[Rfam]
RNA sequence: AUGCGACGACUCCAAGAACGUCUUUUGCCUUGACCGGGGCGUUCUCAGGAGGGGGGCUUUCUAGUCCUUGGUAGUUGCUAGAAUGAAUGCACUAGUUUGAGGGAGGGAGUCUCUCCAUGGCUUUUUCCUAUAGAAUGUGUUAACAUCU
Numbered sequence: 001a002u003g004c005g006a007c008g009a010c011u012c013c014a015a016g017a018a019c020g021u022c023u024u025u026u027g028c029c030u031u032g033a034c035c036g037g038g039g040c041g042u043u044c045u046c047a048g049g050a051g052g053g054g055g056g057c058u059u060u061c062u063a064g065u066c067c068u069u070g071g072u073a074g075u076u077g078c079u080a081g082a083a084u085g086a087a088u089g090c091a092c093u094a095g096u097u098u099g100a101g102g103g104a105g106g107g108a109g110u111c112u113c114u115c116c117a118u119g120g121c122u123u124u125u126u127c128c129u130a131u132a133g134a135a136u137g138u139g140u141u142a143a144c145a146u147c148u
Base pairs, nucleotide, nucleotide: 003078004077005076006075007074010055011054012053015045016044017043018042019041020040021039022038089140090139091138092137101129102128103127104126105125106124107123108122109121110120111119